[Rfam]
RNA sequence: GCCGAGCUCAGUAGCGCGAGCUUGUGACCCAAGCGGGGGCAUUAAGAUGGUUGGAUGAUGAGGUUUCCCUUUGAAGGGUGGGUUUGUGGUGCGCUUGCUACUGGCCUGCCCGUUCCAAGUCAGGUAGCUGAACCGUGUGACCCGGGCUAAGGCCUGUGGUUGUGCGAUUUCUAAAGAGGAGGACACCGCGUGAGGCUGGCUUCACAGAGCAUCGACCACCUCUCGCUCUUUACGUUGGAAGGAUAACAGGCCGGUGCGCACCCUGCCGCAUUUAAGCCCCAGAAGCGGCCAUCAUUAGACAACCAUCUUU
Numbered sequence: 001g002c003c004g005a006g007c008u009c010a011g012u013a014g015c016g017c018g019a020g021c022u023u024g025u026g027a028c029c030c031a032a033g034c035g036g037g038g039g040c041a042u043u044a045a046g047a048u049g050g051u052u053g054g055a056u057g058a059u060g061a062g063g064u065u066u067c068c069c070u071u072u073g074a075a076g077g078g079u080g081g082g083u084u085u086g087u088g089g090u091g092c093g094c095u096u097g098c099u100a101c102u103g104g105c106c107u108g109c110c111c112g113u114u115c116c117a118a119g120u121c122a123g124g125u126a127g128c129u130g131a132a133c134c135g136u137g138u139g140a141c142c143c144g145g146g147c148u149a150a151g152g153c154c155u156g157u158g159g160u161u162g163u164g165c166g167a168u169u170u171c172u173a174a175a176g177a178g179g180a181g182g183a184c185a186c187c188g189c190g191u192g193a194g195g196c197u198g199g200c201u202u203c204a205c206a207g208a209g210c211a212u213c214g215a216c217c218a219c220c221u222c223u224c225g226c227u228c229u230u231u232a233c234g235u236u237g238g239a240a241g242g243a244u245a246a247c248a249g250g251c252c253g254g255u256g257c258g259c260a261c262c263c264u265g266c267c268g269c270a271u272u273u274a275a276g277c278c279c280c281a282g283a284a285g286c287g288g289c290c291a292u293c294a295u296u297a298g299a300c301a302a303c304c305a306u307c308u309u310u
Stems, first nucleotide, its partner, number of pairs: 001040003004023006028037003044309010056297002059294003062290004067285001070283004076278002079275001080269001082267001084265001086263001089261001091259003095256001101254008110242002113240005119233002122230003126227003130170003134166009143156005171176001178223005189214002196207003
Source information
Plant signal recognition particle RNA: a 310-nucleotide sequence from Colocasia esculenta. A reference for the family is Rosenblad et al. (2003), "SRPDB: Signal Recognition Particle Database", Nucleic Acids Res. Rfam 15.1 lists 4,988 matches to the family in 266 species. It is annotated as a non-coding RNA gene. Lineage of the source: Eukaryota > Embryophyta > Magnoliopsida > Aroideae > Colocasia.